This 46-nucleotide sequence from Liparis tanakae belongs to the Rfam family "Histone 3' UTR stem-loop". The base pairs follow the family's consensus structure, which is taken from published work. Rfam's curators write: The mRNAs of metazoan histone genes lack a poly-A tail. 3' end processing occurs at a site between a highly conserved stem-loop (modelled by this family) and a purine rich region around 20 nts downstream (the histone downstream element, or HDE). The stem-loop is bound by a 31 kDa stem-loop binding protein (SLBP - also termed the histone hairpin binding protein, or HBP). Together with U7 snRNA binding of the HDE, SLBP binding nucleate s the formation of the processing complex. The histone 3' UTR stem-loop is also involved in nucleocytoplasmic transport of the mRNA, and in stability regulation and translation efficiency in the cytoplasm. The family has 50 seed sequences and 44,596 matches in Rfam 15.1. It is annotated as a cis-regulatory element. Taxonomically the source falls in Liparis (Eukaryota, Craniata, Teleostomi, Ctenosquamata). On this family, see Williams and Marzluff, Nucleic Acids Res 1995: "The sequence of the stem and flanking sequences at the 3' end of histone mRNA are critical determinants for the binding of the stem-loop binding protein".

RNA sequence: AAAACGGCUCUUUUAAGAGCCAACCACAUACAUAUAACAAAAGAUG
Numbered sequence: 001a002a003a004a005c006g007g008c009u010c011u012u013u014u015a016a017g018a019g020c021c022a023a024c025c026a027c028a029u030a031c032a033u034a035u036a037a038c039a040a041a042a043g044a045u046g
Stems, first nucleotide, its partner, number of pairs: 006021006